[Rfam]
RNA sequence: GUUCCCAAUGAUGGUCCUAUUAUUGACCAUGCUAAUAUUGAAUUGAUUAUGAUUUUUUCGAUGUAACUGAGGGAAUG
Numbered sequence: 001g002u003u004c005c006c007a008a009u010g011a012u013g014g015u016c017c018u019a020u021u022a023u024u025g026a027c028c029a030u031g032c033u034a035a036u037a038u039u040g041a042a043u044u045g046a047u048u049a050u051g052a053u054u055u056u057u058u059c060g061a062u063g064u065a066a067c068u069g070a071g072g073g074a075a076u077g
Stems, first nucleotide, its partner, number of pairs: 001076005
The record is a 77-nucleotide RNA from Amborella trichopoda, which matches "Small nucleolar RNA snoR53Y" in Rfam. Rfam classes the family as a C/D-box small nucleolar RNA. Taxonomically the source falls in Amborella (Eukaryota, Streptophytina, Embryophyta, Amborellaceae). The family is grouped with related families in Rfam's "snoR53 clan". It scores 50 bits against the family's covariance model. On this family, see Brown et al., RNA 2001: "Multiple snoRNA gene clusters from Arabidopsis". Rfam 15.1 lists 513 matches to the family in 230 species.